[Rfam]
RNA: Mammalian CPEB3 ribozyme
Organism: Alligator sinensis
RNA sequence: UUUGCAAGUUUGAAGCUAUAGCAGAAGCAGUCAUGGUGCAGUCUGUCAGACUCCAGUGAACCUGUGAAUUCUGCU
Numbered sequence: 001u002u003u004g005c006a007a008g009u010u011u012g013a014a015g016c017u018a019u020a021g022c023a024g025a026a027g028c029a030g031u032c033a034u035g036g037u038g039c040a041g042u043c044u045g046u047c048a049g050a051c052u053c054c055a056g057u058g059a060a061c062c063u064g065u066g067a068a069u070u071c072u073g074c075u
Base pairs, nucleotide, nucleotide: 012043015042016041017040020075021074022073023072024071025070026069027039028038029037047064048063049062052059053058